[Rfam]
RNA sequence: AUAAUGAUACUCCCGUCCAGCCACAGUCCGAGCGUGAUAGCGAGUCCGGCGUGAAGCCGUCGCAGGCAAUGGGGGCGGUUGCGUGAGAACCACGCAAGGGUGAAAUUCCCGUGG
Numbered sequence: 001a002u003a004a005u006g007a008u009a010c011u012c013c014c015g016u017c018c019a020g021c022c023a024c025a026g027u028c029c030g031a032g033c034g035u036g037a038u039a040g041c042g043a044g045u046c047c048g049g050c051g052u053g054a055a056g057c058c059g060u061c062g063c064a065g066g067c068a069a070u071g072g073g074g075g076c077g078g079u080u081g082c083g084u085g086a087g088a089a090c091c092a093c094g095c096a097a098g099g100g101u102g103a104a105a106u107u108c109c110c111g112u113g114g
Stems, first nucleotide, its partner, number of pairs: 012111001013078006079097003083093003098110003

A member of the RNA family "pemK RNA", 114 nucleotides long.